[Rfam]
RNA sequence: AAAUACAAUGUCGUUUUUUAUUAUGCAGCACCCACUGCGUAGACCUAGAACGUCAUUUAAGGAGAAAACAAAUG
Numbered sequence: 001a002a003a004u005a006c007a008a009u010g011u012c013g014u015u016u017u018u019u020a021u022u023a024u025g026c027a028g029c030a031c032c033c034a035c036u037g038c039g040u041a042g043a044c045c046u047a048g049a050a051c052g053u054c055a056u057u058u059a060a061g062g063a064g065a066a067a068a069c070a071a072a073u074g
Stems, first nucleotide, its partner, number of pairs: 001018003005014002022041007042054003
The family of this 74-nucleotide RNA is "freshwater-2 RNA". The family's RNA type in Rfam is cis-regulatory element. The sequence is in the family's curated seed alignment. The base pairs follow the family's consensus structure, which is taken from published work.